RNA sequence: AAAGUUGCUGCGGUUAAAAAGCUCGUAGUCGAAAUUGUGUCCUCGGCCGCCGGUUCGUCGCUCGCGACGCCAACUGGCGCGCACCGCUGGACGUCCAGCCGGUACAACGAACUCGCCUACGGGGUGCUCUUAACCGAGUGUCCAGGCGGGGGCCGGCAACGUUACUUUGAACAAAUUAAAGUGCUUAAAGCAGGCUAAAUUGCGCUCGCAUACACGCGCAUGGAAUAAUCGAAUAGGACCUCCGUUCUAUUUUGUUGGGUUUUUGUGGAACGACAGACGGAGGUAAUGAUCAAUGGGUGCGGAUGGGGGCAUUCGUAUUGCGACGUUAGAGGUGAAAUUCUUGGAUCGUCGCAAGACGGACUUAAGCGAAAGCAUUUGCCAAAAACGCUUUCAUCGAUCAAGAACGAAAGUUAGAGGUUCGAAGGCGAUCAGAUACCGCCCUAGUUCUAACCAUAAACUAUGCCAGCUAGCGAUCCGCCGAAGUUACUUCUAUGACUCGGCGGGCAGCUUCCGGGAAACCAAAGCUUUCGGGUUCCGGGGGAAGUAUGGUUGCAAAGCUGAAACUUAAAGGAAU
Numbered sequence: 001a002a003a004g005u006u007g008c009u010g011c012g013g014u015u016a017a018a019a020a021g022c023u024c025g026u027a028g029u030c031g032a033a034a035u036u037g038u039g040u041c042c043u044c045g046g047c048c049g050c051c052g053g054u055u056c057g058u059c060g061c062u063c064g065c066g067a068c069g070c071c072a073a074c075u076g077g078c079g080c081g082c083a084c085c086g087c088u089g090g091a092c093g094u095c096c097a098g099c100c101g102g103u104a105c106a107a108c109g110a111a112c113u114c115g116c117c118u119a120c121g122g123g124g125u126g127c128u129c130u131u132a133a134c135c136g137a138g139u140g141u142c143c144a145g146g147c148g149g150g151g152g153c154c155g156g157c158a159a160c161g162u163u164a165c166u167u168u169g170a171a172c173a174a175a176u177u178a179a180a181g182u183g184c185u186u187a188a189a190g191c192a193g194g195c196u197a198a199a200u201u202g203c204g205c206u207c208g209c210a211u212a213c214a215c216g217c218g219c220a221u222g223g224a225a226u227a228a229u230c231g232a233a234u235a236g237g238a239c240c241u242c243c244g245u246u247c248u249a250u251u252u253u254g255u256u257g258g259g260u261u262u263u264u265g266u267g268g269a270a271c272g273a274c275a276g277a278c279g280g281a282g283g284u285a286a287u288g289a290u291c292a293a294u295g296g297g298u299g300c301g302g303a304u305g306g307g308g309g310c311a312u313u314c315g316u317a318u319u320g321c322g323a324c325g326u327u328a329g330a331g332g333u334g335a336a337a338u339u340c341u342u343g344g345a346u347c348g349u350c351g352c353a354a355g356a357c358g359g360a361c362u363u364a365a366g367c368g369a370a371a372g373c374a375u376u377u378g379c380c381a382a383a384a385a386c387g388c389u390u391u392c393a394u395c396g397a398u399c400a401a402g403a404a405c406g407a408a409a410g411u412u413a414g415a416g417g418u419u420c421g422a423a424g425g426c427g428a429u430c431a432g433a434u435a436c437c438g439c440c441c442u443a444g445u446u447c448u449a450a451c452c453a454u455a456a457a458c459u460a461u462g463c464c465a466g467c468u469a470g471c472g473a474u475c476c477g478c479c480g481a482a483g484u485u486a487c488u489u490c491u492a493u494g495a496c497u498c499g500g501c502g503g504g505c506a507g508c509u510u511c512c513g514g515g516a517a518a519c520c521a522a523a524g525c526u527u528u529c530g531g532g533u534u535c536c537g538g539g540g541g542a543a544g545u546a547u548g549g550u551u552g553c554a555a556a557g558c559u560g561a562a563a564c565u566u567a568a569a570g571g572a573a574u
Stems, first nucleotide, its partner, number of pairs: 011537003019534001021405001023403002028398003296392002299389001300387002304383001308380004314358002318354008329340003363374001366373002410451006420444001424440004462533003465526003469509003474504008483496003513520002539566003548559004

Rfam assigns this 574-nucleotide part of an RNA from Photinus pyralis to the family "Eukaryotic small subunit ribosomal RNA". The match comes from Rfam's covariance-model search (1693 bits).